Shown here is a 115-nucleotide sequence from Rhododendron williamsianum, a member of the family "small nucleolar RNA snoR127". Rfam 15.1 lists 273 matches to the family in 170 species. The family's consensus secondary structure was predicted with RNAalifold. A reference for the family is Chen and Wu (2009), "Mining small RNA sequencing data: a new approach to identify small nucleolar RNAs in Arabidopsis", Nucleic Acids Res. Rfam links the family to the GO terms nucleolus and RNA processing. It scores 38 bits against the family's covariance model.
RNA sequence: CUGGAAUGAUGCAUCCUUUAGCCAAAUCAGACAAUGAUGUGCUCUAUGAGGUACCUUCUUUUAAGACUAUAACAACUGUUAUUAGGGAGGCACUAUGUGAUCUCUCCUAUCCAGU
Numbered sequence: 001c002u003g004g005a006a007u008g009a010u011g012c013a014u015c016c017u018u019u020a021g022c023c024a025a026a027u028c029a030g031a032c033a034a035u036g037a038u039g040u041g042c043u044c045u046a047u048g049a050g051g052u053a054c055c056u057u058c059u060u061u062u063a064a065g066a067c068u069a070u071a072a073c074a075a076c077u078g079u080u081a082u083u084a085g086g087g088a089g090g091c092a093c094u095a096u097g098u099g100a101u102c103u104c105u106c107c108u109a110u111c112c113a114g115u
Stems, first nucleotide, its partner, number of pairs: 001114004